RNA sequence: AAAAUUAUAGGCCUUCUUUUCCCGGUUCUUCCUGGAGUCAGGAAAAGCUGGGUUGAGAAAGUGAAAAAAAAAAAAA
Numbered sequence: 001a002a003a004a005u006u007a008u009a010g011g012c013c014u015u016c017u018u019u020u021c022c023c024g025g026u027u028c029u030u031c032c033u034g035g036a037g038u039c040a041g042g043a044a045a046a047g048c049u050g051g052g053u054u055g056a057g058a059a060a061g062u063g064a065a066a067a068a069a070a071a072a073a074a075a076a
Stems, first nucleotide, its partner, number of pairs: 014059005021052005029044006
Shown here is a 76-nucleotide RNA sequence from Aotus nancymaae, a member of the family "mir-320 microRNA precursor family". NCBI's taxonomy places the organism under Eukaryota, Chordata, Euteleostomi, Boreoeutheria, Aotus. For this family Rfam cites "Many novel mammalian microRNA candidates identified by extensive cloning and RAKE analysis" (Berezikov et al., Genome Res, 2006). It scores 85 bits against the family's covariance model. Rfam 15.1 lists 659 matches to the family in 129 species.